[Rfam]
Rfam assigns this 568-nucleotide part of an RNA from Fasciolopsis buskii to the family "Eukaryotic large subunit ribosomal RNA". For this family Rfam cites "The comparative RNA web (CRW) site: an online database of comparative sequence and structure information for ribosomal, intron, and other RNAs" (Cannone et al., BMC Bioinformatics, 2002).
RNA sequence: GAAGACCCUGUUGAGCUUGACUCUAGUCCGACUUUGUGAGGAGACAUGACGGGUGUAGAAUAAGUGGGAGACCGGUCCUUCGGGGCUUGUCGCCAGUGAAAUACCACUACCGUCAUUGUUUCUUUGCUUAUUCAGUAAAACGGGAACUGAUUUUGGUUCUAAGCACGUGCCGGCGUCCGUGGCGUAUGCUGCGGGGGUUGGUAUCUUGGUCAUGUCAGAGUAGUCGUGGCCCUGGCUGCGGCGUUUGAGUCUGAUUGUGAUGUGCGACCCGUUCUGAAGACAAUGUCAGGCGGGGAGUUUGACUGGGGCGGUACAUCUGUCAAAUGGUAACGCAGGUGUCCCAAGGUAAGCUCAGCCAGGACAGAAACCUGGCGUGGAGUAAAAGGGCAAAAGCUAACUUGGUUUUGAUUUUCAGUACGAAUACAGACCGUGAAAGCGUGGCCUAUCGAUCCUUUUGAGUACGAUAUUCAGAGUUUGAAGCAAGAGGUGUCAGAAAAGUUACCACAGGGAUAACUGGCUUGUGGCGGCCAAGCGUUCAUAGCGACGUCGCUUUUUGAUCCUUCGAUGU
Numbered sequence: 001g002a003a004g005a006c007c008c009u010g011u012u013g014a015g016c017u018u019g020a021c022u023c024u025a026g027u028c029c030g031a032c033u034u035u036g037u038g039a040g041g042a043g044a045c046a047u048g049a050c051g052g053g054u055g056u057a058g059a060a061u062a063a064g065u066g067g068g069a070g071a072c073c074g075g076u077c078c079u080u081c082g083g084g085g086c087u088u089g090u091c092g093c094c095a096g097u098g099a100a101a102u103a104c105c106a107c108u109a110c111c112g113u114c115a116u117u118g119u120u121u122c123u124u125u126g127c128u129u130a131u132u133c134a135g136u137a138a139a140a141c142g143g144g145a146a147c148u149g150a151u152u153u154u155g156g157u158u159c160u161a162a163g164c165a166c167g168u169g170c171c172g173g174c175g176u177c178c179g180u181g182g183c184g185u186a187u188g189c190u191g192c193g194g195g196g197g198u199u200g201g202u203a204u205c206u207u208g209g210u211c212a213u214g215u216c217a218g219a220g221u222a223g224u225c226g227u228g229g230c231c232c233u234g235g236c237u238g239c240g241g242c243g244u245u246u247g248a249g250u251c252u253g254a255u256u257g258u259g260a261u262g263u264g265c266g267a268c269c270c271g272u273u274c275u276g277a278a279g280a281c282a283a284u285g286u287c288a289g290g291c292g293g294g295g296a297g298u299u300u301g302a303c304u305g306g307g308g309c310g311g312u313a314c315a316u317c318u319g320u321c322a323a324a325u326g327g328u329a330a331c332g333c334a335g336g337u338g339u340c341c342c343a344a345g346g347u348a349a350g351c352u353c354a355g356c357c358a359g360g361a362c363a364g365a366a367a368c369c370u371g372g373c374g375u376g377g378a379g380u381a382a383a384a385g386g387g388c389a390a391a392a393g394c395u396a397a398c399u400u401g402g403u404u405u406u407g408a409u410u411u412u413c414a415g416u417a418c419g420a421a422u423a424c425a426g427a428c429c430g431u432g433a434a435a436g437c438g439u440g441g442c443c444u445a446u447c448g449a450u451c452c453u454u455u456u457g458a459g460u461a462c463g464a465u466a467u468u469c470a471g472a473g474u475u476u477g478a479a480g481c482a483a484g485a486g487g488u489g490u491c492a493g494a495a496a497a498g499u500u501a502c503c504a505c506a507g508g509g510a511u512a513a514c515u516g517g518c519u520u521g522u523g524g525c526g527g528c529c530a531a532g533c534g535u536u537c538a539u540a541g542c543g544a545c546g547u548c549g550c551u552u553u554u555u556g557a558u559c560c561u562u563c564g565a566u567g568u
Stems, first nucleotide, its partner, number of pairs: 007508004012504002014500005020298004027290002030287003036127010046116007063108005070091002131278005141271004163265005301314001302312003315337006340441002346398002349395003352378002355373006379388002403427003408422004429438003452486006467479003517558001519556001521555001523551006532542002
The source organism's lineage runs through Eukaryota, Opisthokonta, Spiralia, Platyhelminthes and Fasciolopsis.